[Rfam]
RNA sequence: AUUGCUUCUUGAAUAACCGAUUGCAGAUAUCAUCUCUUCGCAGGCGGUUCAGACAGGGGCAUAGAGCAAAUCUGAAUCCCUACGAGGGAAGGGUUAUUUACAUUGAUCCUUUCUCGUUCGGAUUCGUAUAGAUUUACAAAUGU
Numbered sequence: 001a002u003u004g005c006u007u008c009u010u011g012a013a014u015a016a017c018c019g020a021u022u023g024c025a026g027a028u029a030u031c032a033u034c035u036c037u038u039c040g041c042a043g044g045c046g047g048u049u050c051a052g053a054c055a056g057g058g059g060c061a062u063a064g065a066g067c068a069a070a071u072c073u074g075a076a077u078c079c080c081u082a083c084g085a086g087g088g089a090a091g092g093g094u095u096a097u098u099u100a101c102a103u104u105g106a107u108c109c110u111u112u113c114u115c116g117u118u119c120g121g122a123u124u125c126g127u128a129u130a131g132a133u134u135u136a137c138a139a140a141u142g143u
Stems, first nucleotide, its partner, number of pairs: 003061005009056001015049005021043002024040001026038001077122003082117003086114001089111008130143001132141002
Description
The record is a 143-nucleotide RNA sequence from Sorghum bicolor, which matches "Small nucleolar RNA snoR138" in Rfam. NCBI's taxonomy places the organism under Eukaryota, Streptophyta, Petrosaviidae, Sorghinae, Sorghum. A reference for the family is Chen and Wu (2009), "Mining small RNA sequencing data: a new approach to identify small nucleolar RNAs in Arabidopsis", Nucleic Acids Res. Its family is annotated with nucleolus and RNA processing in the Gene Ontology.